S4-Bacteroidia ribosomal protein leader: a 34-nucleotide RNA sequence. By type it is a cis-regulatory leader. Clan: Ribosomal Protein S4 Leader clan. Rfam's curators put it in the seed alignment. The literature on the family includes a 2020 paper in BMC Microbiol by Eckert and Weinberg, "Discovery of 20 novel ribosomal leader candidates in bacteria and archaea".
RNA sequence: GAUUACAUUAUCUUCUUCUUUGUGAUCGCGGCUG
Number, nucleotide and partner (000 for none) at each position: 001g027002a026003u025004u024005a023006c022007a021008u000009u000010a000011u000012c000013u000014u000015c000016u000017u000018c000019u000020u000021u007022g006023u005024g004025a003026u002027c001028g000029c000030g000031g000032c000033u000034g000